[Rfam]
RNA sequence: GUUGCAGAGCCAUUUUGGCAUUCUGUCCACCUCCAUAAAUCUAAGAUCACUUCUUGGUGUCCAAUAUUUCUGGUCUUUGUUGGAGGUGGCCAGCAUGUCAAACUGGCUCUGUAAA
Numbered sequence: 001g002u003u004g005c006a007g008a009g010c011c012a013u014u015u016u017g018g019c020a021u022u023c024u025g026u027c028c029a030c031c032u033c034c035a036u037a038a039a040u041c042u043a044a045g046a047u048c049a050c051u052u053c054u055u056g057g058u059g060u061c062c063a064a065u066a067u068u069u070c071u072g073g074u075c076u077u078u079g080u081u082g083g084a085g086g087u088g089g090c091c092a093g094c095a096u097g098u099c100a101a102a103c104u105g106g107c108u109c110u111g112u113a114a115a
Stems, first nucleotide, its partner, number of pairs: 011105001015101006024092002027089008